[Rfam]
RNA: MIR8024 microRNA precursor family
Organism: Solanum commersonii
RNA sequence: UGGAAGAAUUUGAAGACGUCAACUUGCAGACUAGAAGAAUUUGAAGACUUCAACUUGCAGACUUAAUGAAUUUGAAGACUUCAACU
Numbered sequence: 001u002g003g004a005a006g007a008a009u010u011u012g013a014a015g016a017c018g019u020c021a022a023c024u025u026g027c028a029g030a031c032u033a034g035a036a037g038a039a040u041u042u043g044a045a046g047a048c049u050u051c052a053a054c055u056u057g058c059a060g061a062c063u064u065a066a067u068g069a070a071u072u073u074g075a076a077g078a079c080u081u082c083a084a085c086u
Base pairs, nucleotide, nucleotide: 001084003082004081005080006079009076010075011074012073013072014071017068018067019066021064025059026058027057028056032053034051035050036049037048